Source information: A member of the RNA family "c-di-AMP riboswitch aptamer (ydaO/yuaA leader)" from Desulfosporosinus acididurans, 136 nucleotides long. A search with the family's covariance model found it, with a score of 93 bits. On this family, see Barrick et al., Proc Natl Acad Sci U S A 2004: "New RNA motifs suggest an expanded scope for riboswitches in bacterial genetic control". About the family: This family represents a conserved RNA structure found upstream of the ydaO and yuaA genes in Bacillus subtilis and related genes in other bacteria.
[Rfam]
RNA sequence: UAAUAUAAAAUGCUGAAUCCGAACUUAUGUUAGGAGCGGGGGAUUUUCUUGGGGUGAAUCACGAUUUCUCGUGUAGGGCUUACACCUUUAGCCCGAAUCCGUCAACUAACCUCGUAAGCAAAUGAAAGGUGGACUC
Numbered sequence: 001u002a003a004u005a006u007a008a009a010a011u012g013c014u015g016a017a018u019c020c021g022a023a024c025u026u027a028u029g030u031u032a033g034g035a036g037c038g039g040g041g042g043a044u045u046u047u048c049u050u051g052g053g054g055u056g057a058a059u060c061a062c063g064a065u066u067u068c069u070c071g072u073g074u075a076g077g078g079c080u081u082a083c084a085c086c087u088u089u090a091g092c093c094c095g096a097a098u099c100c101g102u103c104a105a106c107u108a109a110c111c112u113c114g115u116a117a118g119c120a121a122a123u124g125a126a127a128g129g130u131g132g133a134c135u136c
Base pairs, nucleotide, nucleotide: 011120012119013118014117018035019034020033036115037114038113039112040111041110046051052100053099054098060073061072062071063070076094077093078092079091